[Rfam]
RNA sequence: UUCUCGAAAGGGCAACCUCACGCUCGCGUGGGGGCGCAAAGCUACGAGUCAAUCGUGUCACGGACGAUUGAUAGUCGGGCUGCCGAA
Numbered sequence: 001u002u003c004u005c006g007a008a009a010g011g012g013c014a015a016c017c018u019c020a021c022g023c024u025c026g027c028g029u030g031g032g033g034g035c036g037c038a039a040a041g042c043u044a045c046g047a048g049u050c051a052a053u054c055g056u057g058u059c060a061c062g063g064a065c066g067a068u069u070g071a072u073a074g075u076c077g078g079g080c081u082g083c084c085g086a087a
Stems, first nucleotide, its partner, number of pairs: 012037002017032006040081004045077003048072003054066003

Rfam assigns this 87-nucleotide RNA from Kolteria novifilia to the family "c-di-GMP-I riboswitch aptamer". On this family, see Weinberg et al., Nucleic Acids Res 2007: "Identification of 22 candidate structured RNAs in bacteria using the CMfinder comparative genomics pipeline". Rfam links the family to the GO term cyclic-di-GMP binding. Lineage of the source: Bacteria > Planctomycetota > Planctomycetia > Kolteriaceae > Kolteria.